Small Cajal body specific RNA 16: a 168-nucleotide sequence. It is one of the family's seed sequences. The family has 37 seed sequences and 790 matches in Rfam 15.1. Rfam links the family to the GO terms nucleolus and RNA processing. It is annotated as a small Cajal body RNA. About the family: scaRNAs are a specific class of small nuclear RNAs which localise to the Cajal bodies and guide the modification of RNA polymerase II transcribed spliceosomal RNAs U1, U2, U4, U5 and U12. ACA47 belongs to the H/ACA box class of guide RNAs as it has the predicted hairpin-hinge-hairpin-tail structure, the conserved H/ACA-box motifs and is found associated with GAR1. ACA47 is predicted to guide the pseudouridylation of residue U5 of the U1 spliceosomal snRNA.
RNA sequence: GAGGGCCUGGGGAUGGCUGCUGGCGGCUGUGUCUCAGCCUGGUGCCUGCUGGCCUUACCCGUGCCCCAGAUCAACCUCCAGAGGUCCCCCUGCUGGGUUCCUCCUAUGCAGUAACAGGUGUGAGCAUCCAUGCAGCAUUCUGAUGGUCAUGUAUGAUACUGCACACAA
Number, nucleotide and partner (000 for none) at each position: 001g000002a000003g066004g065005g064006c063007c000008u061009g060010g059011g000012g000013a000014u000015g054016g053017c052018u051019g049020c048021u000022g046023g045024c044025g039026g038027c037028u036029g035030u000031g000032u000033c000034u000035c029036a028037g027038c026039c025040u000041g000042g000043u000044g024045c023046c022047u000048g020049c019050u000051g018052g017053c016054c015055u000056u000057a000058c000059c010060c009061g008062u000063g006064c005065c004066c003067c000068a000069g000070a000071u000072c000073a000074a000075c000076c000077u000078c096079c095080a094081g093082a000083g091084g090085u000086c000087c000088c000089c000090c084091u083092g000093c081094u080095g079096g078097g000098u000099u000100c000101c000102u000103c000104c000105u165106a000107u163108g162109c161110a160111g159112u158113a157114a000115c155116a154117g000118g000119u000120g000121u149122g148123a147124g000125c145126a144127u143128c142129c000130a000131u000132g139133c000134a000135g000136c000137a000138u000139u132140c000141u000142g128143a127144u126145g125146g000147u123148c122149a121150u000151g000152u000153a000154u116155g115156a000157u113158a112159c111160u110161g109162c108163a107164c000165a105166c000167a000168a000